[Rfam]
RNA sequence: GCUGCGAAUGCUGGUGGAAUUACAGCCUAUUACGCUCGUGGUCGCGGGUUCGAAUCCCGCCGGUCGAAAGACCGUAGCUCAGUCUGGUAGAGCACGAAACAUUUCACCAUCCCUUGUCCCAGUGAG
Numbered sequence: 001g002c003u004g005c006g007a008a009u010g011c012u013g014g015u016g017g018a019a020u021u022a023c024a025g026c027c028u029a030u031u032a033c034g035c036u037c038g039u040g041g042u043c044g045c046g047g048g049u050u051c052g053a054a055u056c057c058c059g060c061c062g063g064u065c066g067a068a069a070g071a072c073c074g075u076a077g078c079u080c081a082g083u084c085u086g087g088u089a090g091a092g093c094a095c096g097a098a099a100c101a102u103u104u105c106a107c108c109a110u111c112c113c114u115u116g117u118c119c120c121a122g123u124g125a126g
Base pairs, nucleotide, nucleotide: 002122003121004120006118007117013108014107015106016105017104018103019102037096038095039094044060045059046058047057048056051087061074062073063072064071065070077093078092079091080090
Shown here is a 126-nucleotide sequence from Diaphorobacter sp. HDW4B, a member of the family "Y RNA-like". A reference for the family is Chen et al. (2013), "An RNA degradation machine sculpted by Ro autoantigen and noncoding RNA", Cell. NCBI's taxonomy places the organism under Bacteria, Pseudomonadota, Burkholderiales, Comamonadaceae, Diaphorobacter. Pairs were carried over by alignment from the consensus structure, which is taken from published work. Rfam classes the family as a small RNA. From the family's description: In Deinococcus radiodurans Rsr is tethered via Y RNA to the exoribonuclease PNPase and channels single-stranded RNA into the PNPase cavity. Rsr and Y RNA enhance degradation of structured RNAs by PNPase. This role could be conserved, as Rsr and ncRNAs called YrlA and YrlB (Y RNA like) also associate with PNPase in an evolutionary distant bacterium Salmonella Typhimurium.